[Rfam]
RNA: TPP riboswitch aptamer (THI element)
RNA sequence: GCAAACUACUAGGGGUGCCCGAUUGGGCUGAGAGAAAAACGACGUUUUUUAACCCUUUGGACCUGAUCCGGGUAAUACCGGCGGAGGAAAGUAGAGUGGAAAACUU
Dot-bracket structure: .....(((((((((..((((....))))......(((((.....)))))...)))).....(((...((((......))))...)))..)))))............